Shown here is an 81-nucleotide sequence from Carnegiea gigantea, a member of the family "Small nucleolar RNA R66". It is annotated as a C/D-box small nucleolar RNA. The source organism's lineage runs through Eukaryota, Embryophyta, eudicotyledons, Echinocereeae and Carnegiea. On this family, see Chen et al., Nucleic Acids Res 2003: "The high diversity of snoRNAs in plants: identification and comparative study of 120 snoRNA genes from Oryza sativa". Rfam 15.1 lists 584 matches to the family in 219 species. snoR66 is a C/D box small nucleolar RNA, which acts as a methylation guide for 18S ribosomal RNA in plants. snoR66 has been alternatively named snoZ269 in rice.
RNA sequence: UCCUAUUAUAGGAAUAUAAUCUUUGAGACCUAAGAUUUGUCUUUCUUUGACAACAAAUUAUAAGCGUUUUUUUCUGAGGAC
Numbered sequence: 001u002c003c004u005a006u007u008a009u010a011g012g013a014a015u016a017u018a019a020u021c022u023u024u025g026a027g028a029c030c031u032a033a034g035a036u037u038u039g040u041c042u043u044u045c046u047u048u049g050a051c052a053a054c055a056a057a058u059u060a061u062a063a064g065c066g067u068u069u070u071u072u073u074c075u076g077a078g079g080a081c
Stems, first nucleotide, its partner, number of pairs: 001080003033048001034045002